[Rfam]
RNA sequence: UUUUUUAGGGAGAAUGUGGCCUUCCAGCAAGGGGAGGCCAGGGAACUUCAUU
Number, nucleotide and partner (000 for none) at each position: 001u000002u000003u000004u000005u000006u000007a000008g052009g051010g000011a000012g048013a047014a000015u042016g000017u040018g039019g038020c037021c036022u035023u034024c033025c032026a000027g000028c000029a000030a000031g000032g025033g024034g023035a022036g021037g020038c019039c018040a017041g000042g015043g000044a000045a000046c000047u013048u012049c000050a000051u009052u008
The record is a 52-nucleotide sequence from Lentivirus humimdef1, which matches "HIV Ribosomal frameshift signal" in Rfam. Rfam's curators put it in the seed alignment. The source organism's lineage runs through Viruses, Riboviria, Revtraviricetes, Lentivirus and Lentivirus humimdef1. About the family: This family represents the HIV Ribosomal frameshift signal. HIV uses a system called -1 ribosomal frameshifting to produce the required ratio of Gag and Gag-Pol polyproteins. It is annotated as a frameshift element.